[Rfam]
RNA: Xanthine riboswitch aptamer (NMT1 RNA)
RNA sequence: AGUCAGAGUAUAAGCGGUUAGUGCGGCCAGCCCGCAUGGGACAUUGCUCUGCAA
Numbered sequence: 001a002g003u004c005a006g007a008g009u010a011u012a013a014g015c016g017g018u019u020a021g022u023g024c025g026g027c028c029a030g031c032c033c034g035c036a037u038g039g040g041a042c043a044u045u046g047c048u049c050u051g052c053a054a
Base pairs, nucleotide, nucleotide: 005050006049007048008047009046010045015039018041019040021037022036023035024034025033026032